[Rfam]
RNA sequence: GAGAGAGAAGUGAGAAUCUUCUCGGCCGAAUAUCCAAGGUUUCCAGAGUAAAGCUGAUCUUCUCUGGGUAAGUCGGGACCUAAGGCGAGGACGAGAGUCGUAGUCGAUGGACAACAGGUUGAAAUUCCUGUACCGCAUAUAAACAGAACUGUGGGGACGCAGAAGGAUAGGAGAAGCGGGGAAUGGAAAGACCCGCUCAAGCACAAAGGAUAGUCUGGUAGGCAAAUCCGCCAGAUGUUUCUGAAGUGUGACGAGGACCGAAAUUAAGUAGGGAAGUCUCUGAAUCUAUGCUGCCAAGAAAAGCCGCUAUUGUUUUAUAUGUGCCCGUACCGUAAACCGACACAGGUGGAUGAGGAGAGAAUCCUAAGGCCGA
Numbered sequence: 001g002a003g004a005g006a007g008a009a010g011u012g013a014g015a016a017u018c019u020u021c022u023c024g025g026c027c028g029a030a031u032a033u034c035c036a037a038g039g040u041u042u043c044c045a046g047a048g049u050a051a052a053g054c055u056g057a058u059c060u061u062c063u064c065u066g067g068g069u070a071a072g073u074c075g076g077g078a079c080c081u082a083a084g085g086c087g088a089g090g091a092c093g094a095g096a097g098u099c100g101u102a103g104u105c106g107a108u109g110g111a112c113a114a115c116a117g118g119u120u121g122a123a124a125u126u127c128c129u130g131u132a133c134c135g136c137a138u139a140u141a142a143a144c145a146g147a148a149c150u151g152u153g154g155g156g157a158c159g160c161a162g163a164a165g166g167a168u169a170g171g172a173g174a175a176g177c178g179g180g181g182a183a184u185g186g187a188a189a190g191a192c193c194c195g196c197u198c199a200a201g202c203a204c205a206a207a208g209g210a211u212a213g214u215c216u217g218g219u220a221g222g223c224a225a226a227u228c229c230g231c232c233a234g235a236u237g238u239u240u241c242u243g244a245a246g247u248g249u250g251a252c253g254a255g256g257a258c259c260g261a262a263a264u265u266a267a268g269u270a271g272g273g274a275a276g277u278c279u280c281u282g283a284a285u286c287u288a289u290g291c292u293g294c295c296a297a298g299a300a301a302a303g304c305c306g307c308u309a310u311u312g313u314u315u316u317a318u319a320u321g322u323g324c325c326c327g328u329a330c331c332g333u334a335a336a337c338c339g340a341c342a343c344a345g346g347u348g349g350a351u352g353a354g355g356a357g358a359g360a361a362u363c364c365u366a367a368g369g370c371c372g373a
Stems, first nucleotide, its partner, number of pairs: 005023006024371004032351004038331002043067006052060002074327004079110002084105003088101001090099003114131005134323010151307004159294004165287003170281005176196005197254002201249004208242003213236007221229002258272002261269001337346002353365004
Dot-bracket structure: ....((((((.......))))))((((....((((..((...((((((...((.....)).))))))......((((.((...(((.(.(((....))).).)))...))...(((((........)))))..((((((((((.......((((....((((..(((..(((((.(((((...........)))))((..((((...(((..(((((((.((.....)))))))))...)))...))))...))...((.(.......).))....)))))...)))...)))).........))))......))))))))))))))..)).....((......)).)))).((((.....))))..))))..
Source information
A member of the RNA family "Bacterial large subunit ribosomal RNA" from Natranaerovirga pectinivora, 373 nucleotides of a longer RNA. Its family is annotated with ribosome and structural constituent of ribosome in the Gene Ontology. The organism belongs to Natranaerovirga, within Bacteria. It scores 2901 bits against the family's covariance model. The family has 102 seed sequences and 51,934 matches in Rfam 15.1. The family is grouped with related families in Rfam's "LSU clan".